[Rfam]
RNA sequence: GCUCUUCCCAUACGAAACGGAAAACACUAUAUCAGCCAUGCCGGUCUUCGGAUCGGCUAUGGCGAUAAAUGAGCGGUGUAAUAAACCUAUUGGACCCGGGGGCGGUACCCGGCGCCUCCACCAAAAACCGGCGGCCUUGCAAUGAGAUGGCCGGCUUUUGAUGGGGGCGAAACAGGAUCGACAAGGGUGUAAAGAUCGUCUUUUUGCUCGGCAUUGUACCGCCGUUAUCGGGCUAAAAUUGUAGUUGCAAACGACAACUAUGCGGAAGCUCGUCUCGCUGCUUAAUCGCGGUGUGACACUUCAAAUAAAGCCCUAGUGGUUCGCACCUCUAGGCGGGGUCCGAAGGCACCUGGCAACAGAAGCCUUCACC
Numbered sequence: 001g002c003u004c005u006u007c008c009c010a011u012a013c014g015a016a017a018c019g020g021a022a023a024a025c026a027c028u029a030u031a032u033c034a035g036c037c038a039u040g041c042c043g044g045u046c047u048u049c050g051g052a053u054c055g056g057c058u059a060u061g062g063c064g065a066u067a068a069a070u071g072a073g074c075g076g077u078g079u080a081a082u083a084a085a086c087c088u089a090u091u092g093g094a095c096c097c098g099g100g101g102g103c104g105g106u107a108c109c110c111g112g113c114g115c116c117u118c119c120a121c122c123a124a125a126a127a128c129c130g131g132c133g134g135c136c137u138u139g140c141a142a143u144g145a146g147a148u149g150g151c152c153g154g155c156u157u158u159u160g161a162u163g164g165g166g167g168c169g170a171a172a173c174a175g176g177a178u179c180g181a182c183a184a185g186g187g188u189g190u191a192a193a194g195a196u197c198g199u200c201u202u203u204u205u206g207c208u209c210g211g212c213a214u215u216g217u218a219c220c221g222c223c224g225u226u227a228u229c230g231g232g233c234u235a236a237a238a239u240u241g242u243a244g245u246u247g248c249a250a251a252c253g254a255c256a257a258c259u260a261u262g263c264g265g266a267a268g269c270u271c272g273u274c275u276c277g278c279u280g281c282u283u284a285a286u287c288g289c290g291g292u293g294u295g296a297c298a299c300u301u302c303a304a305a306u307a308a309a310g311c312c313c314u315a316g317u318g319g320u321u322c323g324c325a326c327c328u329c330u331a332g333g334c335g336g337g338g339u340c341c342g343a344a345g346g347c348a349c350c351u352g353g354c355a356a357c358a359g360a361a362g363c364c365u366u367c368a369c370c
Stems, first nucleotide, its partner, number of pairs: 040057007061208005071201001073199005086187003090184003096112005113169007209224004214235001216233001219231002336351004342367006